[Rfam]
RNA sequence: CUCCCCGAAAUAGCUUGAGGGCUAGCCUCUUGUUCCUCCUUCCGGAGGUAGAGCACUGGAUGAACUAGAGCCCAUACCCGGGUAUCGAACUCAAUCAAACUCCGAAUGCCGGAAGAUUUAAACAAGGGAGUCAGUCGGCGAGGGAUAAGCUUCGUCGGCGAGAGGCAAACAUGCCAGACUAGCAGCUAAGGUGCCCAAAUGCCGCGUAGUGCAAAGGCUGUGGCGAUACACAGACAAUGAGGAUGUUGGCUUAGAGGCAGCCACCAUUUAAACAGUGCGUAAUAGCUGACUCAUUUAGUGUCUCCGCGCCGAUAAUGAUUGGCGAUCAGCGGUAUACCGAAGCUCUAGGAUAGUACGUCCGAGAGGAUGUGCGAUCGGUAGGGGAGCAUUGUUGUCUGUAUUGCCGUGGCGUAAGCCGCGGUUUAAGAACAACAAGUGAGAAU
Numbered sequence: 001c002u003c004c005c006c007g008a009a010a011u012a013g014c015u016u017g018a019g020g021g022c023u024a025g026c027c028u029c030u031u032g033u034u035c036c037u038c039c040u041u042c043c044g045g046a047g048g049u050a051g052a053g054c055a056c057u058g059g060a061u062g063a064a065c066u067a068g069a070g071c072c073c074a075u076a077c078c079c080g081g082g083u084a085u086c087g088a089a090c091u092c093a094a095u096c097a098a099a100c101u102c103c104g105a106a107u108g109c110c111g112g113a114a115g116a117u118u119u120a121a122a123c124a125a126g127g128g129a130g131u132c133a134g135u136c137g138g139c140g141a142g143g144g145a146u147a148a149g150c151u152u153c154g155u156c157g158g159c160g161a162g163a164g165g166c167a168a169a170c171a172u173g174c175c176a177g178a179c180u181a182g183c184a185g186c187u188a189a190g191g192u193g194c195c196c197a198a199a200u201g202c203c204g205c206g207u208a209g210u211g212c213a214a215a216g217g218c219u220g221u222g223g224c225g226a227u228a229c230a231c232a233g234a235c236a237a238u239g240a241g242g243a244u245g246u247u248g249g250c251u252u253a254g255a256g257g258c259a260g261c262c263a264c265c266a267u268u269u270a271a272a273c274a275g276u277g278c279g280u281a282a283u284a285g286c287u288g289a290c291u292c293a294u295u296u297a298g299u300g301u302c303u304c305c306g307c308g309c310c311g312a313u314a315a316u317g318a319u320u321g322g323c324g325a326u327c328a329g330c331g332g333u334a335u336a337c338c339g340a341a342g343c344u345c346u347a348g349g350a351u352a353g354u355a356c357g358u359c360c361g362a363g364a365g366g367a368u369g370u371g372c373g374a375u376c377g378g379u380a381g382g383g384g385a386g387c388a389u390u391g392u393u394g395u396c397u398g399u400a401u402u403g404c405c406g407u408g409g410c411g412u413a414a415g416c417c418g419c420g421g422u423u424u425a426a427g428a429a430c431a432a433c434a435a436g437u438g439a440g441a442a443u
Stems, first nucleotide, its partner, number of pairs: 001386006011024005026130001027128007039115007051103001052101002057097003061093003068086002070083004134159010164175003179348004184344003190338003199335007216310003220307004225302005237294005243267003248262003268272001273288001277286002349376003353372007387438001389435007397428001399426001403422008